[Rfam]
RNA sequence: CGCAACCAAGACAACAAAUUCCAGCUAGAGUUAGUUUCUAGUCUGAGCCGACGUCUUGGUAAAUAGGAAUCCUCUUGAUCCUCGGCCACCUUCUGUAUGUGGUUGAGUUUGCACGGGGCGAACAA
Numbered sequence: 001c002g003c004a005a006c007c008a009a010g011a012c013a014a015c016a017a018a019u020u021c022c023a024g025c026u027a028g029a030g031u032u033a034g035u036u037u038c039u040a041g042u043c044u045g046a047g048c049c050g051a052c053g054u055c056u057u058g059g060u061a062a063a064u065a066g067g068a069a070u071c072c073u074c075u076u077g078a079u080c081c082u083c084g085g086c087c088a089c090c091u092u093c094u095g096u097a098u099g100u101g102g103u104u105g106a107g108u109u110u111g112c113a114c115g116g117g118g119c120g121a122a123c124a125a
Stems, first nucleotide, its partner, number of pairs: 005060008022045003025041005047052001070121001071118004076113002078110001081107004087101002090099001
Notes: A member of the RNA family "Nematode snoRNA ceN125" from Pristionchus pacificus, 125 nucleotides long. A reference for the family is Jia et al. (2007), "Systematic identification of non-coding RNA 2,2,7-trimethylguanosine cap structures in Caenorhabditis elegans", BMC Mol Biol. The family's consensus secondary structure was predicted with RNAalifold. Lineage of the source: Eukaryota > Opisthokonta > Metazoa > Ecdysozoa > Pristionchus.